The family of this 135-nucleotide RNA sequence from Microcebus murinus is "Small nucleolar RNA SNORA48". The family's consensus secondary structure was predicted with RNAalifold. A reference for the family is Ofengand and Bakin (1997), "Mapping to nucleotide resolution of pseudouridine residues in large subunit ribosomal RNAs from representative eukaryotes, prokaryotes, archaebacteria, mitochondria and chloroplasts", J Mol Biol. It is one of the family's seed sequences. The family is grouped with related families in Rfam's "SNORA48 clan". About the family: The snoRNA ACA 48 has been identified to guide pseudouridylation of the residue U3797 in the 28S rRNA subunit.

[Rfam]
RNA sequence: UGUCCCAGCACUGGGUAGAGUGGCAUCUGGUUAGUGGUGCCCAUCUCAUAUCAGCCAGGGACAAAGCAACCCCUUGUUUAUCCCAGCUUGGCUUCUGGUCUGUGCCUAUGCCUGGUUCAUGCCUUGGUCACAUGA
Numbered sequence: 001u002g003u004c005c006c007a008g009c010a011c012u013g014g015g016u017a018g019a020g021u022g023g024c025a026u027c028u029g030g031u032u033a034g035u036g037g038u039g040c041c042c043a044u045c046u047c048a049u050a051u052c053a054g055c056c057a058g059g060g061a062c063a064a065a066g067c068a069a070c071c072c073c074u075u076g077u078u079u080a081u082c083c084c085a086g087c088u089u090g091g092c093u094u095c096u097g098g099u100c101u102g103u104g105c106c107u108a109u110g111c112c113u114g115g116u117u118c119a120u121g122c123c124u125u126g127g128u129c130a131c132a133u134g135a
Stems, first nucleotide, its partner, number of pairs: 001063006008056001011054004018047003022041006075130002078127003090123003096119003100115003104111002